[Rfam]
RNA sequence: UUCAUGGGGAAUGCGAUCUCCCCACGAGGCGACAUGCCCAAGCAUCGCAUCCGCUCUAGCUUUUACGGAUGCAUCAUG
Numbered sequence: 001u002u003c004a005u006g007g008g009g010a011a012u013g014c015g016a017u018c019u020c021c022c023c024a025c026g027a028g029g030c031g032a033c034a035u036g037c038c039c040a041a042g043c044a045u046c047g048c049a050u051c052c053g054c055u056c057u058a059g060c061u062u063u064u065a066c067g068g069a070u071g072c073a074u075c076a077u078g
Stems, first nucleotide, its partner, number of pairs: 005024006047072006
RNA: chrB-a RNA
Organism: Microvirga guangxiensis